Overview:
The record is a 122-nucleotide RNA sequence, which matches "Flavobacterium-1 RNA" in Rfam. By type it is a small RNA.
[Rfam]
RNA sequence: CUAGAGACGGCAUCCAAAUCUGCCUAUGGCAUUUCCCUGUAUGUUAGCUUUGACCCGAGAGGGUAGCGACUAUGUACUAGGACCGGUUUGCGCUGAGUUCCUGAUCAGGAAGCGCGGCCGGU
Dot-bracket structure: ((((.((.(((((.((....((((...))))......)).))))..((......((.....))..))..)..).).))))..((((.(((((((.....(((....))).))))))))))).
Numbered sequence: 001c002u003a004g005a006g007a008c009g010g011c012a013u014c015c016a017a018a019u020c021u022g023c024c025u026a027u028g029g030c031a032u033u034u035c036c037c038u039g040u041a042u043g044u045u046a047g048c049u050u051u052g053a054c055c056c057g058a059g060a061g062g063g064u065a066g067c068g069a070c071u072a073u074g075u076a077c078u079a080g081g082a083c084c085g086g087u088u089u090g091c092g093c094u095g096a097g098u099u100c101c102u103g104a105u106c107a108g109g110a111a112g113c114g115c116g117g118c119c120g121g122u
Stems, first nucleotide, its partner, number of pairs: 001080004006075001007073001009070001010044004015039002021031004047067002055063002083121004088117007100109003